[Rfam]
RNA: mir-3660 microRNA precursor family
RNA sequence: CUGGACAAAGUUAAAAUGCUAUUCUGUCAUUGUGAUAGUUCAUAUGGGCACUGACAGGAGAGCAUUUUAAUUUUGUCAAG
Numbered sequence: 001c002u003g004g005a006c007a008a009a010g011u012u013a014a015a016a017u018g019c020u021a022u023u024c025u026g027u028c029a030u031u032g033u034g035a036u037a038g039u040u041c042a043u044a045u046g047g048g049c050a051c052u053g054a055c056a057g058g059a060g061a062g063c064a065u066u067u068u069a070a071u072u073u074u075g076u077c078a079a080g
Stems, first nucleotide, its partner, number of pairs: 001080002004077006011070010022059008031050003035045003